[Rfam]
RNA sequence: CUCUUAUCAAGAGCAGGUGGAGGGACUAGCCCGAUGAAGCCCGGCAACCGGUUAUCCUAAGGAUUUACACGGUGCUAAAUCUUGCAGCGCAUGCUGGGAGAUGAGAG
Numbered sequence: 001c002u003c004u005u006a007u008c009a010a011g012a013g014c015a016g017g018u019g020g021a022g023g024g025a026c027u028a029g030c031c032c033g034a035u036g037a038a039g040c041c042c043g044g045c046a047a048c049c050g051g052u053u054a055u056c057c058u059a060a061g062g063a064u065u066u067a068c069a070c071g072g073u074g075c076u077a078a079a080u081c082u083u084g085c086a087g088c089g090c091a092u093g094c095u096g097g098g099a100g101a102u103g104a105g106a107g
Stems, first nucleotide, its partner, number of pairs: 001107008013042001016041003022032003026084001028082002043076004048072002051068002054065001080099001085096004
Dot-bracket structure: ((((((((....(..(((...(((.[.[[)))......))))((((.((.((.(..........).))..))))))...(]].]((((....))))..)))))))))
RNA: SAM riboswitch aptamer (S box leader)
Organism: Fictibacillus enclensis